RNA sequence: AAUCAGCAUCAAGAGUCGGUUGACCCGACGCCAACCUGCCUGUCCCGGCAAGGUGGAAGCCAUUGUGGCGAUGCGGCCGAUUCACGGCAACGAACGGGAGCAGA
Dot-bracket structure: .....(((((....(((((.....))))).((..((((((..[[[[))).))).)).............))))).((((.....)))).......]]]].....
RNA: SAM-I/IV (S-adenosyl methionine) riboswitch aptamer
Organism: Paraburkholderia acidisoli